[Rfam]
RNA sequence: CCUGCACCGGCUCCAGGGGAGUAGCCUCCUUACCUUUGCCAUUUCUGGCCCGGUAAGAGCAGUUAUCAACAUACUUGAGCCUCAAUGCUCAUGGUGACUGCGACCUUCGUCUUUCAGAGGGUUU
Numbered sequence: 001c002c003u004g005c006a007c008c009g010g011c012u013c014c015a016g017g018g019g020a021g022u023a024g025c026c027u028c029c030u031u032a033c034c035u036u037u038g039c040c041a042u043u044u045c046u047g048g049c050c051c052g053g054u055a056a057g058a059g060c061a062g063u064u065a066u067c068a069a070c071a072u073a074c075u076u077g078a079g080c081c082u083c084a085a086u087g088c089u090c091a092u093g094g095u096g097a098c099u100g101c102g103a104c105c106u107u108c109g110u111c112u113u114u115c116a117g118a119g120g121g122u123u124u
Stems, first nucleotide, its partner, number of pairs: 029057006059101010076091005
This 124-nucleotide RNA sequence from Parendozoicomonas haliclonae belongs to the Rfam family "Manganese Mn2+ riboswitch aptamer (yybP-ykoY)". NCBI's taxonomy places the organism under Bacteria, Gammaproteobacteria, Oceanospirillales, Endozoicomonadaceae, Parendozoicomonas. The match comes from Rfam's covariance-model search (52 bits).